[Rfam]
RNA sequence: ACAGGUGCACCGCCUAAUCCCGGGCGCCUCGCCAGGGAACCGGGGACCCAAAAGCACUUGGGGUGAAUCCACGGCACAAAUGCCUCGGUAGGGCUGCUCCGGCCCGAACCCGUCAGCUAACCCGGUCGGCAGAAGGAGAGGAGAA
Numbered sequence: 001a002c003a004g005g006u007g008c009a010c011c012g013c014c015u016a017a018u019c020c021c022g023g024g025c026g027c028c029u030c031g032c033c034a035g036g037g038a039a040c041c042g043g044g045g046a047c048c049c050a051a052a053a054g055c056a057c058u059u060g061g062g063g064u065g066a067a068u069c070c071a072c073g074g075c076a077c078a079a080a081u082g083c084c085u086c087g088g089u090a091g092g093g094c095u096g097c098u099c100c101g102g103c104c105c106g107a108a109c110c111c112g113u114c115a116g117c118u119a120a121c122c123c124g125g126u127c128g129g130c131a132g133a134a135g136g137a138g139a140g141g142a143g144a145a
Stems, first nucleotide, its partner, number of pairs: 012130003018038003039126006049060002061111003069088002091105004
Shown here is a 145-nucleotide sequence from Sinosporangium siamense, a member of the family "c-di-AMP riboswitch aptamer (ydaO/yuaA leader)". Rfam links the family to the GO terms regulation of gene expression and cyclic-di-AMP binding. The pairing is the family consensus, mapped onto this sequence.